[Rfam]
The record is a 92-nucleotide RNA sequence from Ipomoea nil, which matches "Small nucleolar RNA snoR109" in Rfam. The base pairs follow the family's consensus structure, which was predicted with WAR.
RNA sequence: UGGCUGUAGCUAAAUUCAUUCGAUUGUGAAGUUAACUGGCCGGUUGUUGUUCUCUCCUGUCGACAAAUCUGCUUACCGAACUUCACACAUUU
Numbered sequence: 001u002g003g004c005u006g007u008a009g010c011u012a013a014a015u016u017c018a019u020u021c022g023a024u025u026g027u028g029a030a031g032u033u034a035a036c037u038g039g040c041c042g043g044u045u046g047u048u049g050u051u052c053u054c055u056c057c058u059g060u061c062g063a064c065a066a067a068u069c070u071g072c073u074u075a076c077c078g079a080a081c082u083u084c085a086c087a088c089a090u091u092u
Stems, first nucleotide, its partner, number of pairs: 026086008038073003042069004046064004
Record summary: Taxonomically the source falls in Ipomoea (Eukaryota, Streptophyta, Streptophytina, eudicotyledons).